[Rfam]
RNA sequence: GAAGUUUGACAGACAAUCGCUGGCGGCUUUGCCGCGAGAGGAAAGUCCGGGCUCCAAAGGGCAGGAUGCUGGAUAACGUCCAGUCAGCGCGAGCUGAAGGAUAGUGCCACAGAAAUGGACCGCCGAUGGUGCGUACGCACACAGGCAAGGGUGGAACCGUGGUGUAAGAGACCACGAGGGAGGCUGGUGACUUCCUCCCUGGUAAACCCCAUCUGGAGCAAGACCUAAGAGGAACGCCGCGAGUUCGGCUCGCAGCCUUAGCCCGAGGCGCGUUCGGGUUGGUCGCUUGAGCCAUGCAGCAAUGCACGGCCUAGAAAGAUGAUUGUCGCUUCAACGGUGGGAGGGUCGUUCCCGUUCGGACCACUGGAAGUACAGAACCCGGCUUACGGCAAACUUUCCAU
Numbered sequence: 001g002a003a004g005u006u007u008g009a010c011a012g013a014c015a016a017u018c019g020c021u022g023g024c025g026g027c028u029u030u031g032c033c034g035c036g037a038g039a040g041g042a043a044a045g046u047c048c049g050g051g052c053u054c055c056a057a058a059g060g061g062c063a064g065g066a067u068g069c070u071g072g073a074u075a076a077c078g079u080c081c082a083g084u085c086a087g088c089g090c091g092a093g094c095u096g097a098a099g100g101a102u103a104g105u106g107c108c109a110c111a112g113a114a115a116u117g118g119a120c121c122g123c124c125g126a127u128g129g130u131g132c133g134u135a136c137g138c139a140c141a142c143a144g145g146c147a148a149g150g151g152u153g154g155a156a157c158c159g160u161g162g163u164g165u166a167a168g169a170g171a172c173c174a175c176g177a178g179g180g181a182g183g184c185u186g187g188u189g190a191c192u193u194c195c196u197c198c199c200u201g202g203u204a205a206a207c208c209c210c211a212u213c214u215g216g217a218g219c220a221a222g223a224c225c226u227a228a229g230a231g232g233a234a235c236g237c238c239g240c241g242a243g244u245u246c247g248g249c250u251c252g253c254a255g256c257c258u259u260a261g262c263c264c265g266a267g268g269c270g271c272g273u274u275c276g277g278g279u280u281g282g283u284c285g286c287u288u289g290a291g292c293c294a295u296g297c298a299g300c301a302a303u304g305c306a307c308g309g310c311c312u313a314g315a316a317a318g319a320u321g322a323u324u325g326u327c328g329c330u331u332c333a334a335c336g337g338u339g340g341g342a343g344g345g346u347c348g349u350u351c352c353c354g355u356u357c358g359g360a361c362c363a364c365u366g367g368a369a370g371u372a373c374a375g376a377a378c379c380c381g382g383c384u385u386a387c388g389g390c391a392a393a394c395u396u397u398c399c400a401u
Base pairs, nucleotide, nucleotide: 001397002396003395004394005393006392007391008390010388012327013326014325015324016323017322018321020038021037023035024034025033026032027031043385044384045383047382048381049380050379051378052218053217054216055215059264060263061262062261064214065213066212067211068210069083070082071081072080073079084098085096086095087094088093099209100208104207105206106203107202108201120150121149122146123145124144127143128142129140130139131138132137158176159175160174161173162172163171178199179198180197181196182195183194186191222284223283224282225281232275233274234273235272236271237270255269256268257267258266259265291310292309293308295306296305297304298303
A member of the RNA family "Bacterial RNase P class A" from Paenibacillus contaminans, 401 nucleotides long.